The family of this 69-nucleotide sequence from Channa argus is "mir-24 microRNA precursor family". On this family, see Lagos-Quintana et al., Science 2001: "Identification of novel genes coding for small expressed RNAs". The organism belongs to Channa, within Eukaryota. This family represents the microRNA (miRNA) mir-24 family. miRNAs are transcribed as ~70nt precursors (modelled here) and subsequently processed by the Dicer enzyme to give a ~22nt product. It scores 78 bits against the family's covariance model.

RNA sequence: CUCUCUUGUGCCUUCUGAGCUGACAGCAGUUUGACUUAACGCACUGGCUCAGUUCAGCAGGAACAAGAG
Numbered sequence: 001c002u003c004u005c006u007u008g009u010g011c012c013u014u015c016u017g018a019g020c021u022g023a024c025a026g027c028a029g030u031u032u033g034a035c036u037u038a039a040c041g042c043a044c045u046g047g048c049u050c051a052g053u054u055c056a057g058c059a060g061g062a063a064c065a066a067g068a069g
Stems, first nucleotide, its partner, number of pairs: 003069004008064002011061003015057009027046004